[Rfam]
RNA: drum RNA
RNA sequence: AGGUGUUGAAGCAAUUAACUGUGUCGGCAUGCAGCUGAUUGUGGAGCCUGCCCGUGGGUUAUGCGGUAACCACAAACCGAAUAGAUUCUUAGGAAUCGAACGAAAACGCAUUAA
Numbered sequence: 001a002g003g004u005g006u007u008g009a010a011g012c013a014a015u016u017a018a019c020u021g022u023g024u025c026g027g028c029a030u031g032c033a034g035c036u037g038a039u040u041g042u043g044g045a046g047c048c049u050g051c052c053c054g055u056g057g058g059u060u061a062u063g064c065g066g067u068a069a070c071c072a073c074a075a076a077c078c079g080a081a082u083a084g085a086u087u088c089u090u091a092g093g094a095a096u097c098g099a100a101c102g103a104a105a106a107c108g109c110a111u112u113a114a
Stems, first nucleotide, its partner, number of pairs: 001049004011042007019034004024080004063109003084097004